[Rfam]
RNA sequence: GCAUGCCUGGCUCCCUGUAUGCCAUUUGCAAAGCUCAUCAAGAGUCUGGUGGCCUUCGCGUAUGGCGUGCGAGGAGCCGUGCAUGC
Numbered sequence: 001g002c003a004u005g006c007c008u009g010g011c012u013c014c015c016u017g018u019a020u021g022c023c024a025u026u027u028g029c030a031a032a033g034c035u036c037a038u039c040a041a042g043a044g045u046c047u048g049g050u051g052g053c054c055u056u057c058g059c060g061u062a063u064g065g066c067g068u069g070c071g072a073g074g075a076g077c078c079g080u081g082c083a084u085g086c
Stems, first nucleotide, its partner, number of pairs: 001086006008079007016071009027060003
RNA: mir-160 microRNA precursor family